[Rfam]
RNA sequence: AUUCGAGCAAGGCAAACUUGACGGAAGUCAAGGAAGCAAGCUAAAGGGACUAAUGUGUUAACUAAGUCGCCAGCAGCCGAA
Numbered sequence: 001a002u003u004c005g006a007g008c009a010a011g012g013c014a015a016a017c018u019u020g021a022c023g024g025a026a027g028u029c030a031a032g033g034a035a036g037c038a039a040g041c042u043a044a045a046g047g048g049a050c051u052a053a054u055g056u057g058u059u060a061a062c063u064a065a066g067u068c069g070c071c072a073g074c075a076g077c078c079g080a081a
Stems, first nucleotide, its partner, number of pairs: 012037002017032006040074003046071002048068003055062002
Rfam assigns this 81-nucleotide RNA sequence from Paenibacillus sp. PvR098 to the family "c-di-GMP-I riboswitch aptamer". It scores 50 bits against the family's covariance model. The base pairs follow the family's consensus structure, which is taken from published work.